[Rfam]
RNA: ZMP/ZTP riboswitch aptamer (pfl RNA motif)
RNA sequence: AAACUGUCAUACAACUGGCGGAAGUGGAGAUUACCACAUGGGAGUAUGACUUUAAUAAGCCGGCCGCCUGGGCAUCAUAA
Numbered sequence: 001a002a003a004c005u006g007u008c009a010u011a012c013a014a015c016u017g018g019c020g021g022a023a024g025u026g027g028a029g030a031u032u033a034c035c036a037c038a039u040g041g042g043a044g045u046a047u048g049a050c051u052u053u054a055a056u057a058a059g060c061c062g063g064c065c066g067c068c069u070g071g072g073c074a075u076c077a078u079a080a
Stems, first nucleotide, its partner, number of pairs: 003053001006050007015041002017068005024037004057075001059073003